[Rfam]
Rfam assigns this 129-nucleotide RNA sequence from Pongo abelii to the family "Small nucleolar RNA SNORA68". On this family, see Ganot et al., Genes Dev 1997: "The family of box ACA small nucleolar RNAs is defined by an evolutionarily conserved secondary structure and ubiquitous sequence elements essential for RNA accumulation". By type it is an H/ACA-box small nucleolar RNA. Rfam links the family to the GO terms nucleolus and RNA processing. U68 is a member of the H/ACA class of small nucleolar RNAs (snoRNAs) which act as guides in the the modification of uridines to pseudouridines. Pairs were carried over by alignment from the consensus structure, which was predicted with PFOLD.
RNA sequence: CUCAUACCUAAACCCAAGAAUCACUUUCUUAUAGUGAUGAUUUAAACAGAUGCAAACAGCAAGCACAUCUUGUCACCUUUGCGGGGCUGUGGCUGUGCCCCUUGCAGUAAAUUUGGAGGUUCUACAUCC
Numbered sequence: 001c002u003c004a005u006a007c008c009u010a011a012a013c014c015c016a017a018g019a020a021u022c023a024c025u026u027u028c029u030u031a032u033a034g035u036g037a038u039g040a041u042u043u044a045a046a047c048a049g050a051u052g053c054a055a056a057c058a059g060c061a062a063g064c065a066c067a068u069c070u071u072g073u074c075a076c077c078u079u080u081g082c083g084g085g086g087c088u089g090u091g092g093c094u095g096u097g098c099c100c101c102u103u104g105c106a107g108u109a110a111a112u113u114u115g116g117a118g119g120u121u122c123u124a125c126a127u128c129c
Stems, first nucleotide, its partner, number of pairs: 002055001005052002008049002019042005025034002067120005077107002080104002083101005
Dot-bracket structure: .(..((.((.........(((((.((......))...))))).....)).))..)...........(((((.....((.((.(((((.........))))).)).))........))))).........